Description
This 26-nucleotide RNA sequence from Homo sapiens belongs to the Rfam family "Histone 3' UTR stem-loop". The family has 50 seed sequences and 44,596 matches in Rfam 15.1. It is annotated as a cis-regulatory element. It is one of the family's seed sequences. The organism belongs to Homo, within Eukaryota. The family's consensus secondary structure is taken from published work.
RNA sequence: CCAAAGGCUCUUUUCAGAGCCACCCA
Numbered sequence: 001c002c003a004a005a006g007g008c009u010c011u012u013u014u015c016a017g018a019g020c021c022a023c024c025c026a
Stems, first nucleotide, its partner, number of pairs: 006021006